[Rfam]
RNA sequence: AUAAGCUCUUGUCAAUGACUUGGUGAUCGUUGUGCUUGCACAUAAGGUCACACAGUCAUUAGACAAGGCAACGGACAUGAGCAUGUAGCACGAUAGUGCGGAAUGCGAAUGGACGUAGAAUUGCGGGGCACAAUGAGUCCAGUGGACUCAUGUUUUGUGCCGACCGGAGCGAAGCGUAGACUGCGAAGCGCGGAGCAAUUCGUAGCUUAU
Numbered sequence: 001a002u003a004a005g006c007u008c009u010u011g012u013c014a015a016u017g018a019c020u021u022g023g024u025g026a027u028c029g030u031u032g033u034g035c036u037u038g039c040a041c042a043u044a045a046g047g048u049c050a051c052a053c054a055g056u057c058a059u060u061a062g063a064c065a066a067g068g069c070a071a072c073g074g075a076c077a078u079g080a081g082c083a084u085g086u087a088g089c090a091c092g093a094u095a096g097u098g099c100g101g102a103a104u105g106c107g108a109a110u111g112g113a114c115g116u117a118g119a120a121u122u123g124c125g126g127g128g129c130a131c132a133a134u135g136a137g138u139c140c141a142g143u144g145g146a147c148u149c150a151u152g153u154u155u156u157g158u159g160c161c162g163a164c165c166g167g168a169g170c171g172a173a174g175c176g177u178a179g180a181c182u183g184c185g186a187a188g189c190g191c192g193g194a195g196c197a198a199u200u201c202g203u204a205g206c207u208u209a210u
Stems, first nucleotide, its partner, number of pairs: 001210007008067004014060007023051006031042004071116003076111003081106004088099004118201007128191002131188001